[Rfam]
RNA sequence: GUGGCGCUUAUGAAGGCCCGGCCCUAAAGCAGACCCUGCGGGGCCGGGCUGGAUGUCCUCGCCGC
Numbered sequence: 001g002u003g004g005c006g007c008u009u010a011u012g013a014a015g016g017c018c019c020g021g022c023c024c025u026a027a028a029g030c031a032g033a034c035c036c037u038g039c040g041g042g043g044c045c046g047g048g049c050u051g052g053a054u055g056u057c058c059u060c061g062c063c064g065c
Stems, first nucleotide, its partner, number of pairs: 001065005015050010030038003
This 65-nucleotide RNA sequence from Menidia menidia belongs to the Rfam family "Selenocysteine insertion sequence 1". It scores 46 bits against the family's covariance model. Rfam classes the family as a cis-regulatory element.